This 107-nucleotide RNA sequence from Paenibacillus agri belongs to the Rfam family "TPP riboswitch aptamer (THI element)". The match comes from Rfam's covariance-model search (80 bits). The base pairs follow the family's consensus structure, which is taken from published work. Its family is annotated with thiamine pyrophosphate binding in the Gene Ontology.
RNA sequence: GAUAACCACUAGGGGAGCCUGAAUGGGCUGAGACGGGAAAAUUGCAUUCCCGGACCCUUGAACCUGAUCUGGAUCAUACCAGCGUAGGAAAGUGGAGACGGGACUUU
Numbered sequence: 001g002a003u004a005a006c007c008a009c010u011a012g013g014g015g016a017g018c019c020u021g022a023a024u025g026g027g028c029u030g031a032g033a034c035g036g037g038a039a040a041a042u043u044g045c046a047u048u049c050c051c052g053g054a055c056c057c058u059u060g061a062a063c064c065u066g067a068u069c070u071g072g073a074u075c076a077u078a079c080c081a082g083c084g085u086a087g088g089a090a091a092g093u094g095g096a097g098a099c100g101g102g103a104c105u106u107u
Stems, first nucleotide, its partner, number of pairs: 006095005011058004017028004035051005063088004069082004